The record is a 335-nucleotide part of an RNA from Psychroflexus salarius, which matches "Bacterial large subunit ribosomal RNA" in Rfam. Lineage of the source: Bacteria > Pseudomonadati > Bacteroidota > Flavobacteriia > Psychroflexus. The family is grouped with related families in Rfam's "LSU clan".

[Rfam]
RNA sequence: CGAGAGAUUCAUGGCUAAGGAACUAGGCAAAAUGGGCCCGUAACUUCGGGAGAAGGGUCGCCCCACUUCGGUGGGGCCGCAGUGAAGAGGUCCAGGCGACUGUUUAUCAAAAACACAGGGCUCUGCGAAAUUGAGAGAUGACGUAUAGGGCCUGACACCUGCCCGGUGCUGGAAGGUUAAGAGGAGAUGUUAUCUUCGGAGAAGCAUUGAAUUGAAGCCCCAGUAAACGGCGGCCGUAACUAUAACGGUCCUAAGGUAGCGAAAUUCCUUGUCGGGUAAGUUCCGACCUGCACGAAUGGUGCAACGAUCUGGACACUGUCUCAGCCAUGAGCUCG
Numbered sequence: 001c002g003a004g005a006g007a008u009u010c011a012u013g014g015c016u017a018a019g020g021a022a023c024u025a026g027g028c029a030a031a032a033u034g035g036g037c038c039c040g041u042a043a044c045u046u047c048g049g050g051a052g053a054a055g056g057g058u059c060g061c062c063c064c065a066c067u068u069c070g071g072u073g074g075g076g077c078c079g080c081a082g083u084g085a086a087g088a089g090g091u092c093c094a095g096g097c098g099a100c101u102g103u104u105u106a107u108c109a110a111a112a113a114c115a116c117a118g119g120g121c122u123c124u125g126c127g128a129a130a131u132u133g134a135g136a137g138a139u140g141a142c143g144u145a146u147a148g149g150g151c152c153u154g155a156c157a158c159c160u161g162c163c164c165g166g167u168g169c170u171g172g173a174a175g176g177u178u179a180a181g182a183g184g185a186g187a188u189g190u191u192a193u194c195u196u197c198g199g200a201g202a203a204g205c206a207u208u209g210a211a212u213u214g215a216a217g218c219c220c221c222a223g224u225a226a227a228c229g230g231c232g233g234c235c236g237u238a239a240c241u242a243u244a245a246c247g248g249u250c251c252u253a254a255g256g257u258a259g260c261g262a263a264a265u266u267c268c269u270u271g272u273c274g275g276g277u278a279a280g281u282u283c284c285g286a287c288c289u290g291c292a293c294g295a296a297u298g299g300u301g302c303a304a305c306g307a308u309c310u311g312g313a314c315a316c317u318g319u320c321u322c323a324g325c326c327a328u329g330a331g332c333u334c335g
Stems, first nucleotide, its partner, number of pairs: 001335004009330008018321003035059005044049001060077007078082001090314007097306002101115003118153008126143001130139003156301004161231003166228002168224005175219003181213002186208005193200002232250006251255001261288001271287006